[Rfam]
Nucleotides: 102
Stems, first nucleotide, its partner, number of pairs: 018088008029049001031047005058078007
Number, partner (000 for none) and nucleotide at each position: 001000a002000u003000u004000u005000a006000u007000a008000u009000a010000a011000a012000g013000a014000u015000u016000u017000a018088c019087c020086c021085u022084u023083a024082u025081a026000u027000a028000a029049u030000a031047a032046u033045g034044g035043g036000g037000a038000u039000a040000u041000g042000g043035c044034c045033c046032a047031u048000a049029a050000g051000u052000u053000u054000c055000u056000a057000c058078c059077u060076g061075g062074c063073u064072g065000c066000c067000g068000u069000a070000a071000a072064u073063g074062g075061c076060c077059g078058g079000a080000c081025u082024a083023u084022a085021a086020g087019g088018g089000a090000a091000a092000g093000a094000u095000g096000a097000u098000a099000u100000g101000a102000c
Description
Shown here is a 102-nucleotide RNA from Bacillus sp. NRRL B-14911, a member of the family "Purine riboswitch aptamer". Pairs were carried over by alignment from the consensus structure, which is taken from published work. NCBI's taxonomy places the organism under Bacteria, Bacillati, Bacillota, Bacilli, Bacillus. Rfam's curators put it in the seed alignment.